[Rfam]
RNA: raiA-hairpin RNA
Organism: Streptomyces sp. HGB0020
RNA sequence: CACCGAGUCCGAGGUUCCGGAGCUGCCGGAGCCUGGUGCGAAAGGGA
Numbered sequence: 001c002a003c004c005g006a007g008u009c010c011g012a013g014g015u016u017c018c019g020g021a022g023c024u025g026c027c028g029g030a031g032c033c034u035g036g037u038g039c040g041a042a043a044g045g046g047a
Base pairs, nucleotide, nucleotide: 013033014032015031016030017029018028019027020026